[Rfam]
RNA sequence: GGCUGGUUCCAGUGCAGGGAGGUGCACAACUAAUUGAUCAUAACCAAUUACAGAUCUCUUUGUUCUUUCUCCAUUCCUACUGUUCUACUUGAUUAGCCUUAA
Numbered sequence: 001g002g003c004u005g006g007u008u009c010c011a012g013u014g015c016a017g018g019g020a021g022g023u024g025c026a027c028a029a030c031u032a033a034u035u036g037a038u039c040a041u042a043a044c045c046a047a048u049u050a051c052a053g054a055u056c057u058c059u060u061u062g063u064u065c066u067u068u069c070u071c072c073a074u075u076c077c078u079a080c081u082g083u084u085c086u087a088c089u090u091g092a093u094u095a096g097c098c099u100u101a102a
Stems, first nucleotide, its partner, number of pairs: 001098008011089001014086001016081002019078001021076001028064003032060002
RNA: Y RNA
Organism: Callithrix jacchus